Rfam assigns this 90-nucleotide RNA from Salinispora arenicola to the family "ZMP/ZTP riboswitch aptamer (pfl RNA motif)". It is one of the family's seed sequences.

RNA sequence: UCCUCGGGCCGGGACUGGCGCGGUUGGGAUGGAGCACCAUCGGGGAACGGCCCGUGACGAGGACGCACGCCGGGCGCCUGGGCCUCCACA
Dot-bracket structure: ..(.(((((((...(([[[[[.......((((....))))..))...))))))).)..........(.(((..]]]]]..))).).....